[Rfam]
RNA sequence: UUUGCAAGUGACGAUAAAACAGACAGGGACAUCAGAAAUCCUUUUAAGGAUAAUAAUAUGUUGACACGUCUUGGGAAUCUCUGAUGCAUU
Numbered sequence: 001u002u003u004g005c006a007a008g009u010g011a012c013g014a015u016a017a018a019a020c021a022g023a024c025a026g027g028g029a030c031a032u033c034a035g036a037a038a039u040c041c042u043u044u045u046a047a048g049g050a051u052a053a054u055a056a057u058a059u060g061u062u063g064a065c066a067c068g069u070c071u072u073g074g075g076a077a078u079c080u081c082u083g084a085u086g087c088a089u090u
Stems, first nucleotide, its partner, number of pairs: 003088004
Small nucleolar RNA R44/J54/Z268 family: a 90-nucleotide sequence from Papaver nudicaule. Clan: SNORD74 clan. The organism belongs to Papaver, within Eukaryota. It scores 74 bits against the family's covariance model. The family's consensus secondary structure was predicted with PFOLD. The family's RNA type in Rfam is C/D-box small nucleolar RNA. Gene Ontology terms of the family: RNA processing and nucleolus.